[Rfam]
RNA sequence: CGGCACGGUACGAUUCCGUGGGGGAAUUUCCCUAACGCUUAGUCCCUAUACCGUAAAGGCCAUUACUGUAUAGGGCGUUGCCAACUACGAAAGUGUCGGGG
Number, nucleotide and partner (000 for none) at each position: 001c000002g000003g000004c020005a019006c018007g017008g016009u000010a000011c000012g000013a000014u000015u000016c008017c007018g006019u005020g004021g033022g032023g031024g030025a029026a000027u000028u000029u025030c024031c023032c022033u021034a000035a000036c000037g000038c000039u000040u000041a000042g000043u000044c075045c074046c073047u072048a071049u070050a069051c000052c000053g066054u065055a064056a063057a000058g000059g000060c000061c000062a000063u056064u055065a054066c053067u000068g000069u050070a049071u048072a047073g046074g045075g044076c000077g000078u000079u000080g000081c000082c098083a000084a096085c095086u000087a094088c093089g000090a000091a000092a000093g088094u087095g085096u084097c000098g082099g000100g000101g000
Source information: The record is a 101-nucleotide RNA sequence, which matches "RAGATH-36 RNA" in Rfam.